RNA: PhotoRC-II RNA
RNA sequence: UGACGUACAACUGCUCUUAAACCGAGACCUAUAGGCAGUAUAAAACCUCGUCUCUCAUAUCCACUAGUGAAGGGAUUAGUGGAAAUAUAGUAUCGC
Numbered sequence: 001u002g003a004c005g006u007a008c009a010a011c012u013g014c015u016c017u018u019a020a021a022c023c024g025a026g027a028c029c030u031a032u033a034g035g036c037a038g039u040a041u042a043a044a045a046c047c048u049c050g051u052c053u054c055u056c057a058u059a060u061c062c063a064c065u066a067g068u069g070a071a072g073g074g075a076u077u078a079g080u081g082g083a084a085a086u087a088u089a090g091u092a093u094c095g096c
Stems, first nucleotide, its partner, number of pairs: 011038005018033002024054005061082007